[Rfam]
RNA sequence: ACACGAGGAAGGAGGUGGUCCAGCGUAUGCAUAGCUUUGGGACUCGUGAGGUGGCUGUCCGCUAGCCGCUGUCCCUUGAAGGACCGACUGCCGAUCACCGGCUCGUCCUGAUGGCACCCGCCGCGGUAACGCGGCGUGAGUGCCGGAUGGCGGCCGGCGAAGCCAAGGCAGCCACCCGACCCGCGGGCGCUGGUACUUGUCCCCCCAGCACACAAAGCCCGCGGGUCGUCCCAU
Numbered sequence: 001a002c003a004c005g006a007g008g009a010a011g012g013a014g015g016u017g018g019u020c021c022a023g024c025g026u027a028u029g030c031a032u033a034g035c036u037u038u039g040g041g042a043c044u045c046g047u048g049a050g051g052u053g054g055c056u057g058u059c060c061g062c063u064a065g066c067c068g069c070u071g072u073c074c075c076u077u078g079a080a081g082g083a084c085c086g087a088c089u090g091c092c093g094a095u096c097a098c099c100g101g102c103u104c105g106u107c108c109u110g111a112u113g114g115c116a117c118c119c120g121c122c123g124c125g126g127u128a129a130c131g132c133g134g135c136g137u138g139a140g141u142g143c144c145g146g147a148u149g150g151c152g153g154c155c156g157g158c159g160a161a162g163c164c165a166a167g168g169c170a171g172c173c174a175c176c177c178g179a180c181c182c183g184c185g186g187g188c189g190c191u192g193g194u195a196c197u198u199g200u201c202c203c204c205c206c207a208g209c210a211c212a213c214a215a216a217g218c219c220c221g222c223g224g225g226u227c228g229u230c231c232c233a234u
Stems, first nucleotide, its partner, number of pairs: 014059006060159004065154002068151004073146002177228012189209005
RNA: Actinobacteria sRNA Ms_IGR-5
Organism: Actinopolymorpha pittospori